[Rfam]
Small nucleolar RNA SNORD24: a 66-nucleotide RNA sequence from Silurus meridionalis. It is annotated as a C/D-box small nucleolar RNA. The family has 14 seed sequences and 2,843 matches in Rfam 15.1. The source organism's lineage runs through Eukaryota, Deuterostomia, Teleostomi, Otomorpha and Silurus. Its family is annotated with RNA processing and nucleolus in the Gene Ontology.
RNA sequence: UGCAAAUGAUGUAAAGAAAAUCUGAUAACUAAUGUUGACACUUUUCCCACCAAGAUCACUGAUGCA
Numbered sequence: 001u002g003c004a005a006a007u008g009a010u011g012u013a014a015a016g017a018a019a020a021u022c023u024g025a026u027a028a029c030u031a032a033u034g035u036u037g038a039c040a041c042u043u044u045u046c047c048c049a050c051c052a053a054g055a056u057c058a059c060u061g062a063u064g065c066a
Stems, first nucleotide, its partner, number of pairs: 001066004